[Rfam]
RNA sequence: GUGUAUUCUACAGUGCAUGUGUCUCCAGUGAUAUAGAUUAACUGGAGGUACAGCUCUGUUGGAAUAAC
Numbered sequence: 001g002u003g004u005a006u007u008c009u010a011c012a013g014u015g016c017a018u019g020u021g022u023c024u025c026c027a028g029u030g031a032u033a034u035a036g037a038u039u040a041a042c043u044g045g046a047g048g049u050a051c052a053g054c055u056c057u058g059u060u061g062g063a064a065u066a067a068c
Stems, first nucleotide, its partner, number of pairs: 006064004010059004015054002018052012
Dot-bracket structure: .....((((((((.((.((((((((((((...........)))))))))))))).)))).))))....

Rfam assigns this 68-nucleotide sequence from Hymenochirus boettgeri to the family "mir-139 microRNA precursor family". Rfam 15.1 lists 598 matches to the family in 559 species. For this family Rfam cites "Conservation of small RNA pathways in platypus" (Murchison et al., Genome Res, 2008). The base pairs follow the family's consensus structure, which was predicted with RNAalifold. The match comes from Rfam's covariance-model search (79 bits). Taxonomically the source falls in Hymenochirus (Eukaryota, Gnathostomata, Euteleostomi, Amphibia).